[Rfam]
RNA: DUF805b RNA
Nucleotides: 036
Stems, first nucleotide, its partner, number of pairs: 002021004010035003
Number, partner (000 for none) and nucleotide at each position: 001000c002021u003020g004019g005018c006000g007000g008000u009000a010035u011034c012033c013000g014000a015000a016000a017000a018005g019004c020003c021002a022000u023000a024000a025000a026000c027000a028000g029000a030000g031000u032000a033012g034011g035010a036000a